A member of the RNA family "Fluoride riboswitch aptamer (crcB RNA motif)" from bacterium HR24, 77 nucleotides long.

RNA sequence: CCCGAGACAGGCGAUGAGGCCCGCCGGGCGCCAGCCGAGCGCCGAACCGCGGCAACGCUGAUGGCCUCUACCGCAGA
Numbered sequence: 001c002c003c004g005a006g007a008c009a010g011g012c013g014a015u016g017a018g019g020c021c022c023g024c025c026g027g028g029c030g031c032c033a034g035c036c037g038a039g040c041g042c043c044g045a046a047c048c049g050c051g052g053c054a055a056c057g058c059u060g061a062u063g064g065c066c067u068c069u070a071c072c073g074c075a076g077a
Stems, first nucleotide, its partner, number of pairs: 010025004016068006049058003